The family of this 86-nucleotide RNA sequence from Triticum aestivum is "mir-395 microRNA precursor family". Gene Ontology terms of the family: RISC complex and miRNA-mediated post-transcriptional gene silencing. From the family's description: mir-395 was identified in both Arabidopsis thaliana and Oryza sativa computationally and was later experimentally verified. mir-395 is thought to target mRNAs coding for ATP sulphurylases. The mature sequence is excised from the 3' arm of the hairpin.

[Rfam]
RNA sequence: GUAUUACCAUGAGUUCCCCGCAAGCAUUUCACAAGGCAUUAUCCAAAAUGCAAAUGUGAAGUGUUUGGGGGAACUCUCGGUGCCAC
Numbered sequence: 001g002u003a004u005u006a007c008c009a010u011g012a013g014u015u016c017c018c019c020g021c022a023a024g025c026a027u028u029u030c031a032c033a034a035g036g037c038a039u040u041a042u043c044c045a046a047a048a049u050g051c052a053a054a055u056g057u058g059a060a061g062u063g064u065u066u067g068g069g070g071g072a073a074c075u076c077u078c079g080g081u082g083c084c085a086c
Stems, first nucleotide, its partner, number of pairs: 005082004011076009022066012

The organism belongs to Triticum, within Eukaryota.